RNA sequence: CCGUGCUAGAUGGGGAGGUAGCGGUGCCCUGUAACCUGCAAUCCGCUAUAGCAGGGUUGAAUUCCUAUCCGAGGUUUUGAGCCUUUAGAGCCUGCCUCUAGUAAGUAGUGUUGAAGAUUGGGUCCUACGCAACGGAAAUUCACGAACCCCGUCAGGUCCGGAAGGAAGCAGCGGUAAGUGAACCCUUUCGUGUGCCGUAGGUCAGCCUGGUCAGAGCUAACUGCUAGGGUACCGUCUAAGGACUCAUUGCCAAAGAUAGGUGCACGG
Numbered sequence: 001c002c003g004u005g006c007u008a009g010a011u012g013g014g015g016a017g018g019u020a021g022c023g024g025u026g027c028c029c030u031g032u033a034a035c036c037u038g039c040a041a042u043c044c045g046c047u048a049u050a051g052c053a054g055g056g057u058u059g060a061a062u063u064c065c066u067a068u069c070c071g072a073g074g075u076u077u078u079g080a081g082c083c084u085u086u087a088g089a090g091c092c093u094g095c096c097u098c099u100a101g102u103a104a105g106u107a108g109u110g111u112u113g114a115a116g117a118u119u120g121g122g123u124c125c126u127a128c129g130c131a132a133c134g135g136a137a138a139u140u141c142a143c144g145a146a147c148c149c150c151g152u153c154a155g156g157u158c159c160g161g162a163a164g165g166a167a168g169c170a171g172c173g174g175u176a177a178g179u180g181a182a183c184c185c186u187u188u189c190g191u192g193u194g195c196c197g198u199a200g201g202u203c204a205g206c207c208u209g210g211u212c213a214g215a216g217c218u219a220a221c222u223g224c225u226a227g228g229g230u231a232c233c234g235u236c237u238a239a240g241g242a243c244u245c246a247u248u249g250c251c252a253a254a255g256a257u258a259g260g261u262g263c264a265c266g267g
Stems, first nucleotide, its partner, number of pairs: 001267006009058003012030004017025001019023001035055005064260006073251003080244002083241007093231002097228006105221002107218003116212008124201006130192002133190005139182005149174004157166003
RNA: Bacterial large signal recognition particle RNA
Organism: Garciella nitratireducens